PhotoRC-II RNA: a 96-nucleotide RNA from Bellamyvirus bellamy. It scores 66 bits against the family's covariance model. By type it is a cis-regulatory element.
RNA sequence: UCACUAUCCAAACACGCCUGACCGAGACUAAACAGCGUGUCUAAAAAACAGUCUCUCAUACCAACUCUGGAGGGUAGAGUUGGAAUAUUUUACUCA
Numbered sequence: 001u002c003a004c005u006a007u008c009c010a011a012a013c014a015c016g017c018c019u020g021a022c023c024g025a026g027a028c029u030a031a032a033c034a035g036c037g038u039g040u041c042u043a044a045a046a047a048a049c050a051g052u053c054u055c056u057c058a059u060a061c062c063a064a065c066u067c068u069g070g071a072g073g074g075u076a077g078a079g080u081u082g083g084a085a086u087a088u089u090u091u092a093c094u095c096a
Stems, first nucleotide, its partner, number of pairs: 013039005019034002024055005061083007